[Rfam]
RNA sequence: UACUAAGGGCACACGGUGGAUGCCUUGGCACAAGAAGGCGAUGAAGGACGUGGCUUAACUGCGAAAAGUUGCGGGGAGGUGUAAGCAACCUAAUAUCCGCAAAUGUCCGAAUGGGAUAACCCAUCCAUUAUGAUGGAUAGUCGAAAGACGGCCAACCCAGGGAAGUGAAACAUCUCAGUACCUGGUGGAAAAGAAAGCAAAAGCGAUUCCCUGAGUAGUGGCGAGCGAAACGGGAACAGCCCAAACCGAUUGCUGUUACGGCAGCGUCGGGGUUGUAGGACUCCGUAAAUGACUGUGAAAGAUAGUUGAACUAUUUGGAAAAAUAGGCCAUAGAAGGUGAUAGCCCUGUAAGCGAAAUUUGGAGCAGCGUGGGAGUAUCCUGAGUAGCACGGAAUACGUGAGGUUUUGUGUGAAUCUGCGAGAACCAUCUCGUAAGGCUAAAUACUCUCUUGUGACCGAUAGCGAACAAGUACCGUGAGGGAAAGGUGAAAAGUACCCUUAAGAAGGGAGUGAAAUAGUACCUGAAACCGUGUGCUUACAAAA
Numbered sequence: 001u002a003c004u005a006a007g008g009g010c011a012c013a014c015g016g017u018g019g020a021u022g023c024c025u026u027g028g029c030a031c032a033a034g035a036a037g038g039c040g041a042u043g044a045a046g047g048a049c050g051u052g053g054c055u056u057a058a059c060u061g062c063g064a065a066a067a068g069u070u071g072c073g074g075g076g077a078g079g080u081g082u083a084a085g086c087a088a089c090c091u092a093a094u095a096u097c098c099g100c101a102a103a104u105g106u107c108c109g110a111a112u113g114g115g116a117u118a119a120c121c122c123a124u125c126c127a128u129u130a131u132g133a134u135g136g137a138u139a140g141u142c143g144a145a146a147g148a149c150g151g152c153c154a155a156c157c158c159a160g161g162g163a164a165g166u167g168a169a170a171c172a173u174c175u176c177a178g179u180a181c182c183u184g185g186u187g188g189a190a191a192a193g194a195a196a197g198c199a200a201a202a203g204c205g206a207u208u209c210c211c212u213g214a215g216u217a218g219u220g221g222c223g224a225g226c227g228a229a230a231c232g233g234g235a236a237c238a239g240c241c242c243a244a245a246c247c248g249a250u251u252g253c254u255g256u257u258a259c260g261g262c263a264g265c266g267u268c269g270g271g272g273u274u275g276u277a278g279g280a281c282u283c284c285g286u287a288a289a290u291g292a293c294u295g296u297g298a299a300a301g302a303u304a305g306u307u308g309a310a311c312u313a314u315u316u317g318g319a320a321a322a323a324u325a326g327g328c329c330a331u332a333g334a335a336g337g338u339g340a341u342a343g344c345c346c347u348g349u350a351a352g353c354g355a356a357a358u359u360u361g362g363a364g365c366a367g368c369g370u371g372g373g374a375g376u377a378u379c380c381u382g383a384g385u386a387g388c389a390c391g392g393a394a395u396a397c398g399u400g401a402g403g404u405u406u407u408g409u410g411u412g413a414a415u416c417u418g419c420g421a422g423a424a425c426c427a428u429c430u431c432g433u434a435a436g437g438c439u440a441a442a443u444a445c446u447c448u449c450u451u452g453u454g455a456c457c458g459a460u461a462g463c464g465a466a467c468a469a470g471u472a473c474c475g476u477g478a479g480g481g482a483a484a485g486g487u488g489a490a491a492a493g494u495a496c497c498c499u500u501a502a503g504a505a506g507g508g509a510g511u512g513a514a515a516u517a518g519u520a521c522c523u524g525a526a527a528c529c530g531u532g533u534g535c536u537u538a539c540a541a542a543a
Base pairs, nucleotide, nucleotide: 007537008536009535010534011533012532013531014530015529016528022522023486024485027457028456029454030453031452032451033450034449035448036446037445038152039151046108047107048106049063050062051061069102070101071100072099073098074097075096078090079089080088113122114121115120123138124137125136126135127134128133140149141148142147156187157185158184159183160182161181167174168173197204198203207442208235209234210233211232218226219225238439239438240437241436246270247269248268249267252265253264254263277381278380279379281375282374283373284372291368293367294366295365296364300360301359302358303357305353306352307351311326312325313324314323315322329333335347336346337345387411388410389409390408391407392406393405394404395403418433419432420431421430422429473480474479496508497507498506499505

The family of this 543-nucleotide part of an RNA from Chloroherpeton thalassium is "Bacterial large subunit ribosomal RNA". It is one of the family's seed sequences. The family's consensus secondary structure is taken from published work.